[Rfam]
RNA: Glycine riboswitch aptamer
Organism: Acidihalobacter prosperus
RNA sequence: ACAAGCCCGCUUGGAGAGACCCCGCCGCUGGCGGGGCGCCGAAGGCGCAAACCGCCCGGAAACGCUCAGGCAAAAGGACACGCGGGCCGAU
Numbered sequence: 001a002c003a004a005g006c007c008c009g010c011u012u013g014g015a016g017a018g019a020c021c022c023c024g025c026c027g028c029u030g031g032c033g034g035g036g037c038g039c040c041g042a043a044g045g046c047g048c049a050a051a052c053c054g055c056c057c058g059g060a061a062a063c064g065c066u067c068a069g070g071c072a073a074a075a076g077g078a079c080a081c082g083c084g085g086g087c088c089g090a091u
Base pairs, nucleotide, nucleotide: 006086007085008084009083010082012080013079020036021035022034023033038071039070040069041067042066045065046064047063052058